Rfam assigns this 73-nucleotide RNA sequence from Pipistrellus kuhlii to the family "mir-9193 microRNA precursor family". NCBI's taxonomy places the organism under Eukaryota, Vertebrata, Euteleostomi, Boreoeutheria, Pipistrellus. The family's consensus secondary structure was predicted with RNAalifold. The family has 2 seed sequences and 6,008 matches in Rfam 15.1. A search with the family's covariance model found it, with a score of 71 bits.
RNA sequence: CUUGGGGGUUGGGGUCCCUCAGCCCGGAUUUCGAGAGGGUGCAGGCCAGGCUAAGGGACCCCAUCAGUGCAUG
Numbered sequence: 001c002u003u004g005g006g007g008g009u010u011g012g013g014g015u016c017c018c019u020c021a022g023c024c025c026g027g028a029u030u031u032c033g034a035g036a037g038g039g040u041g042c043a044g045g046c047c048a049g050g051c052u053a054a055g056g057g058a059c060c061c062c063a064u065c066a067g068u069g070c071a072u073g
Base pairs, nucleotide, nucleotide: 003071004070006068008065011062012061013060014059015058016057017056018055019054021052022051023050024049026047027046029044030043032041033040